[Rfam]
RNA sequence: UCGCUGUCACAACGGCUUCCUGGCGUGGCGGUAAGAUCCCAAUGGAGCG
Numbered sequence: 001u002c003g004c005u006g007u008c009a010c011a012a013c014g015g016c017u018u019c020c021u022g023g024c025g026u027g028g029c030g031g032u033a034a035g036a037u038c039c040c041a042a043u044g045g046a047g048c049g
Base pairs, nucleotide, nucleotide: 004031005030006029007028008027009026010025013022014021015048016047017046019045020044
Dot-bracket structure: ...(((((((..(([[[.[[))..)))))))............]]]]].
Shown here is a 49-nucleotide RNA from Oceanicola granulosus, a member of the family "SAM/SAH riboswitch aptamer".
The match comes from Rfam's covariance-model search (56 bits).
On this family, see Weickhmann et al., Nucleic Acids Res 2019: "The structure of the SAM/SAH-binding riboswitch".
The source organism's lineage runs through Bacteria, Pseudomonadota, Rhodobacterales, Oceanicola and Oceanicola granulosus.